Record summary:
A member of the RNA family "Glycine riboswitch aptamer" from Nocardioides acrostichi, 90 nucleotides long.

[Rfam]
RNA sequence: AUAUCCCGCGCGGGAGAGUCCGGCUCCGGCCGGCGCCGAAGGGGCAAUUCCUCCCCGGAAUCUCUCAGGCACCCACCCGGCACGGGCCAG
Numbered sequence: 001a002u003a004u005c006c007c008g009c010g011c012g013g014g015a016g017a018g019u020c021c022g023g024c025u026c027c028g029g030c031c032g033g034c035g036c037c038g039a040a041g042g043g044g045c046a047a048u049u050c051c052u053c054c055c056c057g058g059a060a061u062c063u064c065u066c067a068g069g070c071a072c073c074c075a076c077c078c079g080g081c082a083c084g085g086g087c088c089a090g
Stems, first nucleotide, its partner, number of pairs: 006085003010081002013078001020033004035070003038066002042064003048058002
This family represents the bacterial glycine riboswitch. Rfam links the family to the GO term glycine biosynthetic process. Pairs were carried over by alignment from the consensus structure.